The record is an 80-nucleotide RNA sequence from Megamonas hypermegale, which matches "ZMP/ZTP riboswitch aptamer (pfl RNA motif)" in Rfam.

RNA sequence: UAGAAACUGUGUAACUGACGGAAGUGGAAUUAACUACAUGAAGCACAGUAGAUUAUCAGCCGACCGUCUGGGCAAAAUAU
Numbered sequence: 001u002a003g004a005a006a007c008u009g010u011g012u013a014a015c016u017g018a019c020g021g022a023a024g025u026g027g028a029a030u031u032a033a034c035u036a037c038a039u040g041a042a043g044c045a046c047a048g049u050a051g052a053u054u055a056u057c058a059g060c061c062g063a064c065c066g067u068c069u070g071g072g073c074a075a076a077a078u079a080u
Base pairs, nucleotide, nucleotide: 006049007048008047009046010045011044012043015040017068018067019066020065021064024037025036026035027034059073060072061071

The family's consensus secondary structure is taken from published work.